[Rfam]
RNA: Conserved CCUCCUCCC motif stress-induced RNA 1
RNA sequence: GUUUCUUUGCGAGGCUCCACCUCCUCCCGGGGCCUGUAGCAAAAGCGGCGGCACUUCUCCUCCUCCCUGGUGCCGUCGCCCUUU
Number, nucleotide and partner (000 for none) at each position: 001g000002u000003u000004u000005c000006u000007u000008u038009g037010c036011g000012a035013g034014g033015c032016u031017c030018c029019a000020c000021c000022u000023c000024c000025u000026c000027c000028c000029g018030g017031g016032g015033c014034c013035u012036g010037u009038a008039g000040c000041a000042a000043a000044a000045g000046c078047g077048g076049c075050g074051g073052c072053a071054c070055u069056u000057c000058u000059c000060c000061u000062c000063c000064u000065c000066c000067c000068u000069g055070g054071u053072g052073c051074c050075g049076u048077c047078g046079c000080c000081c000082u000083u000084u000